[Rfam]
RNA sequence: AUUGCACCUAAACCCAAGAAUCACUGUUUCUUAUAGCGGUGGUUUAAACAGAGGUGCAAACAGCAAGCGGAUCUUGUCGCCUUUGGGGGGCUGUGGCCGUGCCCCUCAAAGUGAAUUUGGAGGUUCCACAACU
Numbered sequence: 001a002u003u004g005c006a007c008c009u010a011a012a013c014c015c016a017a018g019a020a021u022c023a024c025u026g027u028u029u030c031u032u033a034u035a036g037c038g039g040u041g042g043u044u045u046a047a048a049c050a051g052a053g054g055u056g057c058a059a060a061c062a063g064c065a066a067g068c069g070g071a072u073c074u075u076g077u078c079g080c081c082u083u084u085g086g087g088g089g090g091c092u093g094u095g096g097c098c099g100u101g102c103c104c105c106u107c108a109a110a111g112u113g114a115a116u117u118u119g120g121a122g123g124u125u126c127c128a129c130a131a132c133u
Stems, first nucleotide, its partner, number of pairs: 002059008019044010069126007081111011
A member of the RNA family "Small nucleolar RNA SNORA68", 133 nucleotides long. The sequence is in the family's curated seed alignment. A reference for the family is Ganot et al. (1997), "The family of box ACA small nucleolar RNAs is defined by an evolutionarily conserved secondary structure and ubiquitous sequence elements essential for RNA accumulation", Genes Dev. The family's RNA type in Rfam is H/ACA-box small nucleolar RNA. U68 is a member of the H/ACA class of small nucleolar RNAs (snoRNAs) which act as guides in the the modification of uridines to pseudouridines. The family has 26 seed sequences and 1,079 matches in Rfam 15.1.